[Rfam]
RNA: Small nucleolar RNA SNORD25
RNA sequence: UUCCUAUGAUGAGGACCUUUUCACAGACCUGUACUGAGCUCCGUGAGGAUAAGUAACUCUGAGGAGAU
Numbered sequence: 001u002u003c004c005u006a007u008g009a010u011g012a013g014g015a016c017c018u019u020u021u022c023a024c025a026g027a028c029c030u031g032u033a034c035u036g037a038g039c040u041c042c043g044u045g046a047g048g049a050u051a052a053g054u055a056a057c058u059c060u061g062a063g064g065a066g067a068u
Base pairs, nucleotide, nucleotide: 001066002065003064004063